[Rfam]
RNA sequence: GAAUCCAAAUAAUUCAAUCUCAGGUUGACCCAAGAAUCCAUUUGGAGUCUAAUUAUUUUAUACAAAUGA
Numbered sequence: 001g002a003a004u005c006c007a008a009a010u011a012a013u014u015c016a017a018u019c020u021c022a023g024g025u026u027g028a029c030c031c032a033a034g035a036a037u038c039c040a041u042u043u044g045g046a047g048u049c050u051a052a053u054u055a056u057u058u059u060a061u062a063c064a065a066a067u068g069a
Base pairs, nucleotide, nucleotide: 014028015027016026017025018024033050034049035048037046038045039044
This 69-nucleotide RNA sequence from Candidatus Pelagibacter sp. HTCC7211 belongs to the Rfam family "bablM sRNA". By type it is a small RNA. On this family, see Meyer et al., BMC Genomics 2009: "Identification of candidate structured RNAs in the marine organism 'Candidatus Pelagibacter ubique'". Lineage of the source: Bacteria > Pseudomonadati > Pseudomonadota > Alphaproteobacteria > Candidatus Pelagibacter. Pairs were carried over by alignment from the consensus structure, which is taken from published work.